[Rfam]
RNA sequence: GGAGGGAUGGAUGAGCGGUUUAAGUCGCACGCCUGGAAAGCGUGUGUGGGUUAACAGCCCACCGCGGGUUCGAAUCCCGCUCCCUCCG
Numbered sequence: 001g002g003a004g005g006g007a008u009g010g011a012u013g014a015g016c017g018g019u020u021u022a023a024g025u026c027g028c029a030c031g032c033c034u035g036g037a038a039a040g041c042g043u044g045u046g047u048g049g050g051u052u053a054a055c056a057g058c059c060c061a062c063c064g065c066g067g068g069u070u071c072g073a074a075u076c077c078c079g080c081u082c083c084c085u086c087c088g
Stems, first nucleotide, its partner, number of pairs: 001087007010026003028044005064080005
RNA: tRNA
Organism: Rivibacter subsaxonicus